[Rfam]
RNA sequence: UCGCGAUAGUCUGGAAAGUGGGCAGGGCGCCUGUGCGCCCCCGGCCCCACCGAAGGGGUAAGCGCCGUUCGCGGUCGCGAAAGCUCUCAGGUCCGGUGACAGGUGGGGGCAG
Numbered sequence: 001u002c003g004c005g006a007u008a009g010u011c012u013g014g015a016a017a018g019u020g021g022g023c024a025g026g027g028c029g030c031c032u033g034u035g036c037g038c039c040c041c042c043g044g045c046c047c048c049a050c051c052g053a054a055g056g057g058g059u060a061a062g063c064g065c066c067g068u069u070c071g072c073g074g075u076c077g078c079g080a081a082a083g084c085u086c087u088c089a090g091g092u093c094c095g096g097u098g099a100c101a102g103g104u105g106g107g108g109g110c111a112g
Base pairs, nucleotide, nucleotide: 007106009104010103011102012101013100020047021046022045023044049092050091051090052088053087056086057085058084
This 112-nucleotide RNA from Alphaproteobacteria bacterium PA4 belongs to the Rfam family "Glycine riboswitch aptamer".